[Rfam]
RNA sequence: AAACCCUUUAACUAUAGUCCCGUGAGGCUAAGAAGGACAGCGAAAAUGUCAUCGGAUUUUGUAUCGAUCCGUAUGUGUACAGAUUUAUUCUGCCCUCUUGUCUCUUCAUGACAAGAGGGUUUUUGUU
Number, nucleotide and partner (000 for none) at each position: 001a000002a000003a000004c000005c036006c035007u034008u033009u032010a000011a000012c000013u000014a000015u030016a029017g028018u027019c026020c000021c000022g000023u000024g000025a000026g019027g018028c017029u016030a015031a000032g009033a008034a007035g006036g005037a000038c000039a000040g000041c000042g000043a000044a000045a000046a000047u000048g000049u000050c000051a000052u000053c000054g000055g086056a085057u000058u083059u082060u081061g080062u079063a078064u077065c000066g000067a074068u000069c000070c000071g000072u000073a000074u067075g000076u000077g064078u063079a062080c061081a060082g059083a058084u000085u056086u055087a000088u000089u000090c000091u000092g120093c119094c118095c117096u116097c115098u114099u113100g112101u111102c110103u000104c000105u000106u000107c000108a000109u000110g102111a101112c100113a099114a098115g097116a096117g095118g094119g093120u092121u000122u000123u000124u000125g000126u000127u000